[Rfam]
Nucleotides: 126
Base pairs, nucleotide, nucleotide: 001126003124004123005122006121007120014067015066016065017064069112070111071110073107076106078104082099083098
Number, partner (000 for none) and nucleotide at each position: 001126c002000a003124c004123u005122c006121u007120g008000a009000a010000a011000a012000g013000u014067g015066a016065u017064u018000g019000a020000c021000g022000c023000g024000c025000a026000u027000u028000u029000c030000g031000g032000c033000c034000g035000c036000c037000g038000g039000g040000u041000u042000g043000a044000c045000c046000g047000g048000c049000a050000u051000u052000c053000g054000a055000u056000u057000g058000c059000g060000a061000a062000g063000c064017g065016a066015u067014c068000c069112g070111c071110c072000c073107a074000c075000g076106g077000u078104g079000a080000a081000a082099g083098c084000a085000g086000a087000c088000c089000a090000c091000u092000u093000g094000g095000u096000c097000a098083g099082c100000g101000a102000a103000a104078c105000u106076c107073u108000c109000a110071g111070g112069c113000u114000c115000c116000a117000u118000g119000a120007c121006a122005g123004a124003g125000g126001g